[Rfam]
RNA sequence: UUGUGAAGAGACGAAACAUAUUGUUGUUAGGUGCUAUGGAGUCAGUACCUAACCAUAGCAACCUUAUGCACAGCAGAACGAAACACUGCCUGAUCCUGGGCCAACCUCACUACUGUUGCCACCCUUGAGUCCACUGAUGCUGCCACUUGGCCAAUCCAUCUCAUUGGGGGUCUACUUCUCUGACCUUACCAA
Number, nucleotide and partner (000 for none) at each position: 001u000002u000003g189004u188005g187006a186007a000008g184009a000010g000011a000012c000013g000014a000015a000016a000017c000018a000019u000020a000021u000022u000023g000024u000025u000026g000027u000028u000029a000030g000031g000032u000033g000034c000035u000036a000037u000038g000039g000040a000041g000042u000043c000044a000045g000046u000047a000048c000049c000050u000051a000052a000053c000054c000055a000056u000057a000058g000059c000060a000061a000062c000063c000064u000065u000066a000067u000068g000069c000070a000071c000072a000073g000074c000075a000076g000077a000078a000079c000080g000081a000082a000083a000084c000085a000086c000087u000088g000089c000090c000091u000092g000093a000094u000095c000096c000097u000098g000099g000100g000101c000102c000103a000104a000105c000106c000107u000108c000109a000110c000111u000112a000113c000114u000115g000116u000117u000118g000119c000120c000121a000122c000123c000124c000125u000126u000127g000128a000129g000130u000131c000132c000133a000134c000135u000136g000137a000138u000139g000140c000141u000142g000143c000144c000145a000146c000147u000148u000149g000150g000151c000152c000153a000154a000155u000156c000157c000158a000159u000160c000161u000162c000163a000164u000165u000166g000167g000168g000169g000170g000171u000172c000173u000174a000175c000176u000177u000178c000179u000180c000181u000182g000183a000184c008185c000186u006187u005188a004189c003190c000191a000192a000
Shown here is a 192-nucleotide part of an RNA from Chrysochloris asiatica, a member of the family "Eukaryotic large subunit ribosomal RNA". The literature on the family includes a 2001 paper in Science by Yusupov et al., "Crystal structure of the ribosome at 5.5 A resolution". It scores 1656 bits against the family's covariance model. Its Rfam clan is "LSU clan". Rfam links the family to the GO terms ribosome and structural constituent of ribosome. Taxonomically the source falls in Chrysochloris (Eukaryota, Deuterostomia, Euteleostomi, Eutheria).